RNA sequence: UGAGUCGGCCAGGCAAUCGCUGCUUCGUAAGAAGGAGAGGAAAGUCCGGGCUCCACAGGGCAGGGUGCCAGAUAACGUCUGGGCGGCGAAAGCCGACGGAAAGUGCAGCAGAAAGGAAACCGCCGUCCGCAAGGGCGGUAAGGGUGAAAAGGUGCGGUAAGAGCGCACCGCAGUCCUGGUAACAGGGCUGGCGAUGGUAAACCCCACCCGGAGCAAGGCCAAAUAGGGUCCCAUUAGGCGUGGCCCGCGCUGGGACCGGGUAGGCUGCUUGACCUUGAGGGUGACCUCAAGGCUAGACGAAUGAUUGCCCAAGACAGAACCCGGCUUACCGGCCGGCUCACACU
Numbered sequence: 001u002g003a004g005u006c007g008g009c010c011a012g013g014c015a016a017u018c019g020c021u022g023c024u025u026c027g028u029a030a031g032a033a034g035g036a037g038a039g040g041a042a043a044g045u046c047c048g049g050g051c052u053c054c055a056c057a058g059g060g061c062a063g064g065g066u067g068c069c070a071g072a073u074a075a076c077g078u079c080u081g082g083g084c085g086g087c088g089a090a091a092g093c094c095g096a097c098g099g100a101a102a103g104u105g106c107a108g109c110a111g112a113a114a115g116g117a118a119a120c121c122g123c124c125g126u127c128c129g130c131a132a133g134g135g136c137g138g139u140a141a142g143g144g145u146g147a148a149a150a151g152g153u154g155c156g157g158u159a160a161g162a163g164c165g166c167a168c169c170g171c172a173g174u175c176c177u178g179g180u181a182a183c184a185g186g187g188c189u190g191g192c193g194a195u196g197g198u199a200a201a202c203c204c205c206a207c208c209c210g211g212a213g214c215a216a217g218g219c220c221a222a223a224u225a226g227g228g229u230c231c232c233a234u235u236a237g238g239c240g241u242g243g244c245c246c247g248c249g250c251u252g253g254g255a256c257c258g259g260g261u262a263g264g265c266u267g268c269u270u271g272a273c274c275u276u277g278a279g280g281g282u283g284a285c286c287u288c289a290a291g292g293c294u295a296g297a298c299g300a301a302u303g304a305u306u307g308c309c310c311a312a313g314a315c316a317g318a319a320c321c322c323g324g325c326u327u328a329c330c331g332g333c334c335g336g337c338u339c340a341c342a343c344u
Stems, first nucleotide, its partner, number of pairs: 001340010012309007020037002023034004042327003046324005051213004058246004063209005068082005083097001084095004098204002103202002105198002120143002122139007151169006170192001171190008217266004227257006237251005273292008